[Rfam]
RNA sequence: AUACCAUGUUGUGGGUAGCUUGCACACAACUUCUUAAACCGUUCCCAAUAAUCGUAAAAGAAAUCAGCUUCUUUUUGCCUUAUUCCAACGAUCUCUUUUCUUAGCUU
Numbered sequence: 001a002u003a004c005c006a007u008g009u010u011g012u013g014g015g016u017a018g019c020u021u022g023c024a025c026a027c028a029a030c031u032u033c034u035u036a037a038a039c040c041g042u043u044c045c046c047a048a049u050a051a052u053c054g055u056a057a058a059a060g061a062a063a064u065c066a067g068c069u070u071c072u073u074u075u076u077g078c079c080u081u082a083u084u085c086c087a088a089c090g091a092u093c094u095c096u097u098u099u100c101u102u103a104g105c106u107u
Base pairs, nucleotide, nucleotide: 001107004104006101057074058073060071